[Rfam]
RNA sequence: AAACUCUGGUUCCUCUGCAUUUAACCGUGAAAAUCUUUCGCCUUUUACUAAAGAUUUCCGUGCAAAGGAGCAUACAUUGAGUAUUAUAUACAAUUUUUGGAGUCCCCUCGAAAGAGCGGGACA
Numbered sequence: 001a002a003a004c005u006c007u008g009g010u011u012c013c014u015c016u017g018c019a020u021u022u023a024a025c026c027g028u029g030a031a032a033a034u035c036u037u038u039c040g041c042c043u044u045u046u047a048c049u050a051a052a053g054a055u056u057u058c059c060g061u062g063c064a065a066a067g068g069a070g071c072a073u074a075c076a077u078u079g080a081g082u083a084u085u086a087u088a089u090a091c092a093a094u095u096u097u098u099g100g101a102g103u104c105c106c107c108u109c110g111a112a113a114g115a116g117c118g119g120g121a122c123a
Base pairs, nucleotide, nucleotide: 003082004081005080006079009071010070011069012068013067014066016064017063018062019061031057032056033055034054035053036052037051038050102122103121104120105119106118

Rfam assigns this 123-nucleotide sequence from Caenorhabditis elegans to the family "U5 spliceosomal RNA". The sequence is in the family's curated seed alignment. Taxonomically the source falls in Caenorhabditis (Eukaryota, Eumetazoa, Ecdysozoa, Rhabditomorpha). U5 RNA is a component of both types of known spliceosome. The precise function of this molecule is unknown, though it is known that the 5' loop is required for splice site selection and p220 binding, and that both the 3' stem-loop and the Sm site are important for Sm protein binding and cap methylation.